[Rfam]
RNA sequence: GAUAGGUCGCUGUCGCUACUGUGAUUGGACACUGACGGAGAGUCAAUUAGCCUUGUUCGGGCGGUUCUUCGCAGGGGGAACCGGGGUGGUCCGAGCCACGAGGGGGGAGGCUCGGACCACCCGUA
Numbered sequence: 001g002a003u004a005g006g007u008c009g010c011u012g013u014c015g016c017u018a019c020u021g022u023g024a025u026u027g028g029a030c031a032c033u034g035a036c037g038g039a040g041a042g043u044c045a046a047u048u049a050g051c052c053u054u055g056u057u058c059g060g061g062c063g064g065u066u067c068u069u070c071g072c073a074g075g076g077g078g079a080a081c082c083g084g085g086g087u088g089g090u091c092c093g094a095g096c097c098a099c100g101a102g103g104g105g106g107g108a109g110g111c112u113c114g115g116a117c118c119a120c121c122c123g124u125a
Base pairs, nucleotide, nucleotide: 001014002013003012004011005010015051016050017049018048021032022031023030033045034044035043036042058075061072062071063070064069077082085121086120087119088118089117090116091115092114093113094112095111096110097109099106
A member of the RNA family "Streptomyces RNA 3920" from Streptomyces sp. ADI95-17, 125 nucleotides long. The pairing is the family consensus, mapped onto this sequence. On this family, see Vockenhuber et al., RNA Biol 2011: "Deep sequencing-based identification of small non-coding RNAs in Streptomyces coelicolor". Rfam describes the family as follows. Identified by deep sequencing of transcriptome at the end of exponential growth phase. Sequencing size consistent with northern blot size. Streptomyces specific.